Shown here is a 394-nucleotide part of an RNA from Thermodesulfatator indicus, a member of the family "Bacterial large subunit ribosomal RNA". It is one of the family's seed sequences.
RNA sequence: GAUAAAGAGGGUGAGAAUCCCUCUCGCCGUAAGCCCAAGGUUUCCUGGGGAAGGGUCGUCCGCCCAGGGUUAGCCGGACCCUAAGGCGAGGCCGGAAGGCGUAGCCGAUGGGAAGAGGGGUCAACAAUCCCCCGCCACCUGAGUGGAGGCCAAGGGGUGACGCAGGAGGGAAGGGCGCCGGGGCCGUGAAUGGCAGGCCCUCCAAACCUGUAGCCCGGUGACGGGGCGAGGCAAAUCCCGCCCCCGAGGGUGAGGGGGAGUAAGUAACCGGGAGCGAGAGUUCCCGGGAAGGCGCUCGGACCACACUGCCGAGAAAUAGCCUCGUGGCUGAAGAAGCUCAGGUGACCGUACCGCAAACCGACACAGGUGGGCGGGCAGAGAAUGCUCAGGCGCG
Numbered sequence: 001g002a003u004a005a006a007g008a009g010g011g012u013g014a015g016a017a018u019c020c021c022u023c024u025c026g027c028c029g030u031a032a033g034c035c036c037a038a039g040g041u042u043u044c045c046u047g048g049g050g051a052a053g054g055g056u057c058g059u060c061c062g063c064c065c066a067g068g069g070u071u072a073g074c075c076g077g078a079c080c081c082u083a084a085g086g087c088g089a090g091g092c093c094g095g096a097a098g099g100c101g102u103a104g105c106c107g108a109u110g111g112g113a114a115g116a117g118g119g120g121u122c123a124a125c126a127a128u129c130c131c132c133c134g135c136c137a138c139c140u141g142a143g144u145g146g147a148g149g150c151c152a153a154g155g156g157g158u159g160a161c162g163c164a165g166g167a168g169g170g171a172a173g174g175g176c177g178c179c180g181g182g183g184c185c186g187u188g189a190a191u192g193g194c195a196g197g198c199c200c201u202c203c204a205a206a207c208c209u210g211u212a213g214c215c216c217g218g219u220g221a222c223g224g225g226g227c228g229a230g231g232c233a234a235a236u237c238c239c240g241c242c243c244c245c246g247a248g249g250g251u252g253a254g255g256g257g258g259a260g261u262a263a264g265u266a267a268c269c270g271g272g273a274g275c276g277a278g279a280g281u282u283c284c285c286g287g288g289a290a291g292g293c294g295c296u297c298g299g300a301c302c303a304c305a306c307u308g309c310c311g312a313g314a315a316a317u318a319g320c321c322u323c324g325u326g327g328c329u330g331a332a333g334a335a336g337c338u339c340a341g342g343u344g345a346c347c348g349u350a351c352c353g354c355a356a357a358c359c360g361a362c363a364c365a366g367g368u369g370g371g372c373g374g375g376c377a378g379a380g381a382a383u384g385c386u387c388a389g390g391c392g393c394g
Base pairs, nucleotide, nucleotide: 006024007023008022009021010020011019025392026391027390028389033372034371035370036369039352040351044068045067046066047065048064049063053061054060075348076347077346080111081110085106086105087104089102091100092099093098115133117132118131119130120129136344137343138342139341140340141339142338143337144336149328150327154323155322156321157320158319162309163308164307165306168302169301174296175295176294177293178292180201181200182199183198184197185196202264207257208256209255213251214250215249223244224243225242226241227240228239230238231237268287269286270285271284272283273282274281275280358367359366374386375385376384377383